[Rfam]
RNA sequence: AAAUAAUAUUGGCAAACCUCCUGAAAAGGCGGGACGCAAAGCCAUGGGUCUAAAGAUUCUAAUCUAAGAUUGCCAGGUUGCAGCA
Number, nucleotide and partner (000 for none) at each position: 001a000002a000003a000004u000005a000006a000007u000008a000009u000010u000011g000012g037013c036014a000015a000016a000017c032018c031019u000020c029021c028022u027023g000024a000025a000026a000027a022028g021029g020030c000031g018032g017033g000034a000035c000036g013037c012038a000039a000040a079041g078042c077043c076044a000045u075046g074047g073048g070049u069050c068051u000052a000053a000054a000055g064056a063057u062058u000059c000060u000061a000062a057063u056064c055065u000066a000067a000068g050069a049070u048071u000072g000073c047074c046075a045076g043077g042078u041079u040080g000081c000082a000083g000084c000085a000

A member of the RNA family "c-di-GMP-I riboswitch aptamer" from Sporomusa silvacetica, 85 nucleotides long. The base pairs follow the family's consensus structure, which is taken from published work. Taxonomically the source falls in Sporomusa silvacetica (Bacteria, Negativicutes, Sporomusaceae, Sporomusa).